[Rfam]
The record is a 170-nucleotide RNA sequence from Lentibacillus kapialis, which matches "Group II catalytic intron D1-D4-3" in Rfam. A search with the family's covariance model found it, with a score of 133 bits. The base pairs follow the family's consensus structure. Rfam describes the family as follows. Group II introns are found in rRNA, tRNA and mRNA of organelles in fungi, plants and protists, and also in mRNA in bacteria. Gene Ontology term of the family: Group II intron splicing. The organism belongs to Lentibacillus, within Bacteria.

RNA sequence: UCCAUCGUGAGGUGGAAUCUGAAGGAAGUUGGCGGCAAACUCUUGAGCCGAGGUACACGAACCAUAUCAGGCAUAAUUGGGACGGAUAAGUCUGCAAUACAAGAUGAAGUCCAAUACUACCCGAAUUCCAUUGUGUAAAUGUGGCGGCUAAAUGAGAGGAAAGAGAUAAC
Numbered sequence: 001u002c003c004a005u006c007g008u009g010a011g012g013u014g015g016a017a018u019c020u021g022a023a024g025g026a027a028g029u030u031g032g033c034g035g036c037a038a039a040c041u042c043u044u045g046a047g048c049c050g051a052g053g054u055a056c057a058c059g060a061a062c063c064a065u066a067u068c069a070g071g072c073a074u075a076a077u078u079g080g081g082a083c084g085g086a087u088a089a090g091u092c093u094g095c096a097a098u099a100c101a102a103g104a105u106g107a108a109g110u111c112c113a114a115u116a117c118u119a120c121c122c123g124a125a126u127u128c129c130a131u132u133g134u135g136u137a138a139a140u141g142u143g144g145c146g147g148c149u150a151a152a153u154g155a156g157a158g159g160a161a162a163g164a165g166a167u168a169a170c
Base pairs, nucleotide, nucleotide: 001016002015003014004013005012006011030169032167036163040158041157042156043155044154045153046149047148048147049146050145062144063143064142065141066140071136072135073134075132078130079129080128081127082126084112085111086110087109090105091104092103093102